[Rfam]
RNA sequence: ACCGUGCGCUUGCCGAAUCCCGUCCGCGGGAACCGGGGACCCGCCCUUCCGCUACCGCGGGAGGGGUCCAAUGGGGUGAAUCGGGCAGCCGUCAGGCCCGUAGGAGACCUUCCUGCUCCGAACCCGUCAGCUAACCCGGUAGGCGAGAAGGAAGGAAAG
Numbered sequence: 001a002c003c004g005u006g007c008g009c010u011u012g013c014c015g016a017a018u019c020c021c022g023u024c025c026g027c028g029g030g031a032a033c034c035g036g037g038g039a040c041c042c043g044c045c046c047u048u049c050c051g052c053u054a055c056c057g058c059g060g061g062a063g064g065g066g067u068c069c070a071a072u073g074g075g076g077u078g079a080a081u082c083g084g085g086c087a088g089c090c091g092u093c094a095g096g097c098c099c100g101u102a103g104g105a106g107a108c109c110u111u112c113c114u115g116c117u118c119c120g121a122a123c124c125c126g127u128c129a130g131c132u133a134a135c136c137c138g139g140u141a142g143g144c145g146a147g148a149a150g151g152a153a154g155g156a157a158a159g
Base pairs, nucleotide, nucleotide: 011145012144013143014142018031019030020029032140033139034138035137036136037135042073043072074125075124076123082100083099084098085097103119104118105117106116
This 159-nucleotide RNA sequence from Actinacidiphila paucisporea belongs to the Rfam family "c-di-AMP riboswitch aptamer (ydaO/yuaA leader)".
The pairing is the family consensus, mapped onto this sequence.